[Rfam]
RNA sequence: UUGAAUAGGCAGCCGAGACUCGCCCGAAGGCAGGCGGGUGCGGGGGACCCGAUCAGGUGGGGCGAAUUCUUCACCGCUGUUUCGACACGGCGGCAGGAGAUAGGGCACUUUCAAGCCCGAGCCCGUCAGCUAACCUCGUAGGCAUAUGAAAGGGCCGUG
Numbered sequence: 001u002u003g004a005a006u007a008g009g010c011a012g013c014c015g016a017g018a019c020u021c022g023c024c025c026g027a028a029g030g031c032a033g034g035c036g037g038g039u040g041c042g043g044g045g046g047a048c049c050c051g052a053u054c055a056g057g058u059g060g061g062g063c064g065a066a067u068u069c070u071u072c073a074c075c076g077c078u079g080u081u082u083c084g085a086c087a088c089g090g091c092g093g094c095a096g097g098a099g100a101u102a103g104g105g106c107a108c109u110u111u112c113a114a115g116c117c118c119g120a121g122c123c124c125g126u127c128a129g130c131u132a133a134c135c136u137c138g139u140a141g142g143c144a145u146a147u148g149a150a151a152g153g154g155c156c157g158u159g
Stems, first nucleotide, its partner, number of pairs: 012143003018039007040139006050059002060124003068100004103118004
The family of this 159-nucleotide sequence from Geobacter pickeringii is "c-di-AMP riboswitch aptamer (ydaO/yuaA leader)". The source organism's lineage runs through Bacteria, Thermodesulfobacteriota, Geobacterales, Geobacteraceae and Geobacter.